Annotation:
This 114-nucleotide RNA sequence from Nocardioides humilatus belongs to the Rfam family "mraW RNA". The base pairs follow the family's consensus structure, which is taken from published work.
RNA sequence: AGCGAUCCGUAGGACGAGGUCUCUGGCCCGCUCCCACUUCAUCUGGGGCACCUUCCCCGGCACCAGACGGGGCUUGGGGGCGGGCGGGGGACCUGGUUCUACGGAUCGCUCAGC
Numbered sequence: 001a002g003c004g005a006u007c008c009g010u011a012g013g014a015c016g017a018g019g020u021c022u023c024u025g026g027c028c029c030g031c032u033c034c035c036a037c038u039u040c041a042u043c044u045g046g047g048g049c050a051c052c053u054u055c056c057c058c059g060g061c062a063c064c065a066g067a068c069g070g071g072g073c074u075u076g077g078g079g080g081c082g083g084g085c086g087g088g089g090g091a092c093c094u095g096g097u098u099c100u101a102c103g104g105a106u107c108g109c110u111c112a113g114c
Stems, first nucleotide, its partner, number of pairs: 010101006018093002021090004026085010037072004042067005048061002
Dot-bracket structure: .........((((((..((.((((.((((((((((.((((.(((((.((..........)).))))).))))...)))))))))).)))).))..)))))).............

Source information:
NCBI's taxonomy places the organism under Bacteria, Actinomycetota, Actinomycetes, Propionibacteriales, Nocardioides. It scores 53 bits against the family's covariance model.